[Rfam]
RNA sequence: GUCAUGAAACAACCGCUGCACUUAGUGUAGAGGAAAGUCCAUGCUCGCACUGGCUGCGACGCCGGUAGUGAUCGUGCCUAGCCAAUUCAUAAGCUAGGGCAGUUAGUGAUAACUGACGGCAAGAGGCUUCCCUAAAUCGUUAACGACAUGGGAUACACUCUUUGAAAGUGCCACAGUGACGGAGUCUACUUGGAAACGAGUAGAGUGGAACGAGGUAAACCCCACGAGCGAGAAACCCAAACAAUGGUAGGGGCAUUUUAUAGUCCGAAAAUGAACGGAGCUAUAAGGACGAUUAUUCGUAGAUAGAUGGUUGUUACUGGAGUACGAGGUUCAUCACCGUUUGCAGUACAAAAGAACAGAACAUGGCUUAUGACU
Numbered sequence: 001g002u003c004a005u006g007a008a009a010c011a012a013c014c015g016c017u018g019c020a021c022u023u024a025g026u027g028u029a030g031a032g033g034a035a036a037g038u039c040c041a042u043g044c045u046c047g048c049a050c051u052g053g054c055u056g057c058g059a060c061g062c063c064g065g066u067a068g069u070g071a072u073c074g075u076g077c078c079u080a081g082c083c084a085a086u087u088c089a090u091a092a093g094c095u096a097g098g099g100c101a102g103u104u105a106g107u108g109a110u111a112a113c114u115g116a117c118g119g120c121a122a123g124a125g126g127c128u129u130c131c132c133u134a135a136a137u138c139g140u141u142a143a144c145g146a147c148a149u150g151g152g153a154u155a156c157a158c159u160c161u162u163u164g165a166a167a168g169u170g171c172c173a174c175a176g177u178g179a180c181g182g183a184g185u186c187u188a189c190u191u192g193g194a195a196a197c198g199a200g201u202a203g204a205g206u207g208g209a210a211c212g213a214g215g216u217a218a219a220c221c222c223c224a225c226g227a228g229c230g231a232g233a234a235a236c237c238c239a240a241a242c243a244a245u246g247g248u249a250g251g252g253g254c255a256u257u258u259u260a261u262a263g264u265c266c267g268a269a270a271a272u273g274a275a276c277g278g279a280g281c282u283a284u285a286a287g288g289a290c291g292a293u294u295a296u297u298c299g300u301a302g303a304u305a306g307a308u309g310g311u312u313g314u315u316a317c318u319g320g321a322g323u324a325c326g327a328g329g330u331u332c333a334u335c336a337c338c339g340u341u342u343g344c345a346g347u348a349c350a351a352a353a354g355a356a357c358a359g360a361a362c363a364u365g366g367c368u369u370a371u372g373a374c375u
Stems, first nucleotide, its partner, number of pairs: 004375001007371001008315007016030006035369003039366005044232005049066006072227005077098006099117001100115006118222002121162004129153004137146002168220002170216003185204008236252003256288007289300004317354002322349004
Dot-bracket structure: ...(..((((((((.((((((...))))))....[[[.[[[[[(((((((((((......)))))).....(((((((((((..........))))))(((((((....)))))).)((.((((....((((....((......))...)))).....)))).....(((((............((((((((....)))))))).........)))..))))))))))))))...(((...........)))...(((((((...................)))))))((((....))))........))))))).((...((((....................))))...)).......]]]]]]]].)...)